[Rfam]
RNA sequence: UCAUGACCUGCGGGGUUCCCUUUGUCAUCCUAUGCCUGGAGCUCAGAGUGAGGCAGGGGUCGCAAAGGGCUGCUCAGCUGUUGUUUCU
Numbered sequence: 001u002c003a004u005g006a007c008c009u010g011c012g013g014g015g016u017u018c019c020c021u022u023u024g025u026c027a028u029c030c031u032a033u034g035c036c037u038g039g040a041g042c043u044c045a046g047a048g049u050g051a052g053g054c055a056g057g058g059g060u061c062g063c064a065a066a067g068g069g070c071u072g073c074u075c076a077g078c079u080g081u082u083g084u085u086u087c088u
Stems, first nucleotide, its partner, number of pairs: 018069005024063002028059004034054004
The record is an 88-nucleotide RNA from Ophiophagus hannah, which matches "mir-204 microRNA precursor family" in Rfam.
A reference for the family is Chen et al. (2005), "The developmental miRNA profiles of zebrafish as determined by small RNA cloning", Genes Dev.
Lineage of the source: Eukaryota > Sarcopterygii > Sauria > Lepidosauria > Ophiophagus.
It is one of the family's seed sequences.
Rfam 15.1 lists 1,730 matches to the family in 644 species.